[Rfam]
RNA sequence: AUGUUUGUGAGAACCAUUUAAAUCAUGAUUUAAAUGGUUCUCAC
Numbered sequence: 001a002u003g004u005u006u007g008u009g010a011g012a013a014c015c016a017u018u019u020a021a022a023u024c025a026u027g028a029u030u031u032a033a034a035u036g037g038u039u040c041u042c043a044c
Base pairs, nucleotide, nucleotide: 007044008043009042010041011040012039013038014037015036016035017034018033019032020031021030022029023028
Record summary: This 44-nucleotide RNA from Chenopodium quinoa belongs to the Rfam family "Plastid-ccsA-ndhD-1 3UTR RNA". The literature on the family includes a 2023 paper in Plant Commun by Richter et al., "Retrograde signaling in plants: A critical review focusing on the GUN pathway and beyond". It is annotated as a cis-regulatory element. About the family: Plastid-ccsA-ndhD-1 is a non-coding RNA (ncRNA) recognised in plastids. It was found in the three prime untranslated region (3UTR) of ccsA and ndhD genes, its 3UTR location suggests a role in transcript maturation. Pairs were carried over by alignment from the consensus structure, which was predicted with LocARNA. The source organism's lineage runs through Eukaryota, Mesangiospermae, Gunneridae, Amaranthaceae and Chenopodium. Its Rfam clan is "Plastid-ccsA_ndhD 3UTR RNA clan".